RNA sequence: GAAGACCCUGUUGAGCUUUACUCUAGUCUGGCUUUGUGAAACGACUUAAGAGGUGUAGUAUAAGUGGGAGCAGAACGUAUACAGUUUCGCGGCAAUGAAAUACCACUACUUUUAAUGUUGUUUUACUUAUCUACUUAUAGGGAUUAAUACAGGAUGCCGAGAAUUUCGGUUCUUGCGCUUGUAUAUAUCAGCUAAUAUGAGCAUUGUAUGACAACUGCAAGGUUGUCUGUCAUCCUAUGGAGUGUAGAGACAUAGUCAGAUGGGGAGUUUGACUGGGGCGGUACAUCUGUUAAACAAUAACGCAGAUGUCCAAAGACAAGCUCAAAGAGAACAGAAAUCUCUUGUAGACUAAAAGGGGAAAAGCUUGUUUGAUUUCUAUUUUCAGAAAAAGUAGAAAACGUGAAAGCGUGGCCUAUCGAUCCUUUAUAUUUGCAAAAUGAUGAGACUUGCUCUCUACUGUGCAUAUAGAGGUGUCUGAAAAGUUACCACAGGGAUAACUGGCUUGUGGCUGCCAAGCGCUCCUAGCGACGUAGCUUUUUGAUCCUUCGAUGU
Number, nucleotide and partner (000 for none) at each position: 001g000002a000003a000004g000005a000006c000007c492008c491009u490010g489011u000012u488013g487014a484015g483016c482017u481018u480019u000020a268021c267022u266023c265024u000025a000026g000027u260028c259029u258030g257031g256032c255033u254034u000035u000036g126037u125038g124039a123040a122041a121042c120043g119044a118045c117046u115047u114048a113049a112050g111051a110052g109053g000054u000055g000056u000057a000058g000059u000060a000061u000062a000063a107064g106065u105066g104067g103068g000069a000070g090071c089072a000073g000074a000075a000076c000077g000078u000079a000080u000081a000082c000083a000084g000085u000086u000087u000088c000089g071090c070091g000092g000093c000094a000095a000096u000097g000098a000099a000100a000101u000102a000103c067104c066105a065106c064107u063108a000109c052110u051111u050112u049113u048114a047115a046116u000117g045118u044119u043120g042121u041122u040123u039124u038125a037126c036127u000128u000129a000130u248131c247132u246133a245134c244135u000136u000137a000138u000139a000140g000141g000142g000143a238144u000145u000146a000147a000148u208149a207150c206151a205152g204153g000154a000155u000156g000157c000158c000159g000160a000161g000162a000163a000164u000165u000166u000167c000168g000169g000170u000171u000172c000173u000174u000175g000176c000177g000178c000179u000180u000181g000182u000183a000184u000185a000186u000187a000188u000189c000190a000191g000192c000193u000194a000195a000196u000197a000198u000199g000200a000201g000202c000203a000204u152205u151206g150207u149208a148209u000210g000211a000212c000213a000214a000215c000216u000217g000218c000219a000220a000221g235222g234223u000224u232225g231226u000227c000228u000229g000230u000231c225232a224233u000234c222235c221236u000237a000238u143239g000240g000241a000242g000243u000244g134245u133246a132247g131248a130249g000250a000251c000252a000253u000254a033255g032256u031257c030258a029259g028260a027261u000262g000263g000264g000265g023266a022267g021268u020269u000270u000271g284272a282273c281274u280275g000276g000277g000278g000279c000280g274281g273282u272283a000284c271285a307286u306287c305288u304289g303290u302291u000292a000293a000294a000295c000296a000297a000298u000299a000300a000301c000302g290303c289304a288305g287306a286307u285308g000309u000310c411311c410312a000313a000314a000315g000316a368317c367318a366319a365320g364321c363322u348323c347324a000325a343326a342327g341328a340329g339330a338331a000332c000333a000334g000335a000336a000337a000338u330339c329340u328341c327342u326343u325344g000345u000346a000347g323348a322349c358350u357351a000352a000353a000354a000355g000356g000357g350358g349359a000360a000361a000362a000363g321364c320365u319366u318367g317368u316369u000370u000371g000372a000373u397374u396375u395376c394377u393378a392379u391380u390381u389382u000383c000384a000385g000386a000387a000388a000389a381390a380391g379392u378393a377394g376395a375396a374397a373398a000399c408400g407401u406402g000403a000404a000405a000406g401407c400408g399409u000410g311411g310412c000413c000414u000415a000416u000417c000418g000419a000420u000421c000422c470423u469424u468425u467426a466427u465428a000429u000430u000431u463432g462433c461434a000435a000436a000437a000438u000439g000440a000441u000442g000443a000444g000445a000446c000447u000448u000449g000450c000451u000452c000453u000454c000455u000456a000457c000458u000459g000460u000461g433462c432463a431464u000465a427466u426467a425468g424469a423470g422471g000472u000473g000474u000475c000476u000477g000478a000479a000480a018481a017482g016483u015484u014485a000486c000487c013488a012489c010490a009491g008492g007493g000494a000495u000496a000497a000498c000499u000500g000501g542502c000503u540504u000505g539506u000507g535508g534509c533510u532511g531512c530513c000514a000515a000516g526517c525518g000519c000520u000521c000522c000523u000524a000525g517526c516527g000528a000529c000530g512531u511532a510533g509534c508535u507536u000537u000538u000539u505540g503541a000542u501543c000544c000545u000546u000547c000548g000549a000550u000551g000552u000
This 552-nucleotide part of an RNA from Plasmodium berghei belongs to the Rfam family "Eukaryotic large subunit ribosomal RNA".
Lineage of the source: Eukaryota > Sar > Haemosporida > Plasmodiidae > Vinckeia.
Rfam's curators put it in the seed alignment.